[Rfam]
RNA: lysM-TM7 RNA
RNA sequence: ACCUGCCAAAAUUGUCGCUACGGAUAUAGCAAAACUAAUGUAGAAUAAUAAUAAUCAAUUAGGUCGACAACAUAUCCUGUUCUAUUGCGAGAAGAAAGACAAUUUGGUAGAGGUGCUAGCGGUAACGUUGGCACAAGGAG
Numbered sequence: 001a002c003c004u005g006c007c008a009a010a011a012u013u014g015u016c017g018c019u020a021c022g023g024a025u026a027u028a029g030c031a032a033a034a035c036u037a038a039u040g041u042a043g044a045a046u047a048a049u050a051a052u053a054a055u056c057a058a059u060u061a062g063g064u065c066g067a068c069a070a071c072a073u074a075u076c077c078u079g080u081u082c083u084a085u086u087g088c089g090a091g092a093a094g095a096a097a098g099a100c101a102a103u104u105u106g107g108u109a110g111a112g113g114u115g116c117u118a119g120c121g122g123u124a125a126c127g128u129u130g131g132c133a134c135a136a137g138g139a140g
Stems, first nucleotide, its partner, number of pairs: 003110007013101004022077006080093004113134003117130005